[Rfam]
RNA sequence: UUUAACAACCAUGUUCACUUUCCACUUGAGAAGACACAAAAAUUGUCUUGUCGCUUUAGGAUAAUGUGUUGACUCGCAGGAACUAGUUGCAAUGAACGGCGAUUAAAUUGGUCUGUUUUUUUGUUGGUUAAGCAUGGUAGAUAACGUUUGUUCAAACAAUAGCUUAAAGUGACAUGGUUUUGCCUAUGUUUAUGGUAAAAGCAUCGAUAGAGCUGUACAUUU
Numbered sequence: 001u002u003u004a005a006c007a008a009c010c011a012u013g014u015u016c017a018c019u020u021u022c023c024a025c026u027u028g029a030g031a032a033g034a035c036a037c038a039a040a041a042a043u044u045g046u047c048u049u050g051u052c053g054c055u056u057u058a059g060g061a062u063a064a065u066g067u068g069u070u071g072a073c074u075c076g077c078a079g080g081a082a083c084u085a086g087u088u089g090c091a092a093u094g095a096a097c098g099g100c101g102a103u104u105a106a107a108u109u110g111g112u113c114u115g116u117u118u119u120u121u122u123g124u125u126g127g128u129u130a131a132g133c134a135u136g137g138u139a140g141a142u143a144a145c146g147u148u149u150g151u152u153c154a155a156a157c158a159a160u161a162g163c164u165u166a167a168a169g170u171g172a173c174a175u176g177g178u179u180u181u182g183c184c185u186a187u188g189u190u191u192a193u194g195g196u197a198a199a200a201g202c203a204u205c206g207a208u209a210g211a212g213c214u215g216u217a218c219a220u221u222u
Stems, first nucleotide, its partner, number of pairs: 009137007022127003025123001028120004032114004037110003041104007048095001051092001053090002056086004065078004159216007170206003175203002178200007
small nucleolar RNA snR95: a 222-nucleotide RNA sequence from Schizosaccharomyces pombe. Rfam's curators put it in the seed alignment. A reference for the family is Li et al. (2005), "Identification and functional analysis of 20 Box H/ACA small nucleolar RNAs (snoRNAs) from Schizosaccharomyces pombe", J Biol Chem. The base pairs follow the family's consensus structure, which was predicted with RNAalifold.